[Rfam]
RNA sequence: AAAAAGGGUUUCGAUCCUUAUGGUCUGGUCUUUUUGAUGUCUACGGAAUCGCAAUCAAGAGAUUUCGGAAACAUAUUUUUUUAUUACGGUUGCGUUGCCCGUUGUGCUCUCGACCGUU
Numbered sequence: 001a002a003a004a005a006g007g008g009u010u011u012c013g014a015u016c017c018u019u020a021u022g023g024u025c026u027g028g029u030c031u032u033u034u035u036g037a038u039g040u041c042u043a044c045g046g047a048a049u050c051g052c053a054a055u056c057a058a059g060a061g062a063u064u065u066c067g068g069a070a071a072c073a074u075a076u077u078u079u080u081u082u083a084u085u086a087c088g089g090u091u092g093c094g095u096u097g098c099c100c101g102u103u104g105u106g107c108u109c110u111c112g113a114c115c116g117u118u
Stems, first nucleotide, its partner, number of pairs: 008072005013025004026043003030039001032037001044067007087116006094109001097107002100104001

This 118-nucleotide sequence from Octopus sinensis belongs to the Rfam family "U11 spliceosomal RNA". Taxonomically the source falls in Octopus (Eukaryota, Mollusca, Cephalopoda, Coleoidea). On this family, see Montzka and Steitz, Proc Natl Acad Sci U S A 1988: "Additional low-abundance human small nuclear ribonucleoproteins: U11, U12, etc". Its family is annotated with pre-mRNA 5'-splice site binding, U11 snRNP and mRNA 5'-splice site recognition in the Gene Ontology. Pairs were carried over by alignment from the consensus structure, which is taken from published work. The family has 72 seed sequences and 2,595 matches in Rfam 15.1. Clan: U1 clan.